[Rfam]
RNA sequence: CCAACUACAAGAUAUCAUAUCGAUAAUUUAGAGAUUUCCGGAAACUAAGUAGUUUCUUGUUUAUAAAAUAAUACAAUAAAAGCUCCCUGAAGAAUUUCUUCAGGGAGCUUUUAUUU
Numbered sequence: 001c002c003a004a005c006u007a008c009a010a011g012a013u014a015u016c017a018u019a020u021c022g023a024u025a026a027u028u029u030a031g032a033g034a035u036u037u038c039c040g041g042a043a044a045c046u047a048a049g050u051a052g053u054u055u056c057u058u059g060u061u062u063a064u065a066a067a068a069u070a071a072u073a074c075a076a077u078a079a080a081a082g083c084u085c086c087c088u089g090a091a092g093a094a095u096u097u098c099u100u101c102a103g104g105g106a107g108c109u110u111u112u113a114u115u116u
Stems, first nucleotide, its partner, number of pairs: 003036002006032001038059001040057006077113016
RNA: Histidine operon leader
Organism: Aquimarina amphilecti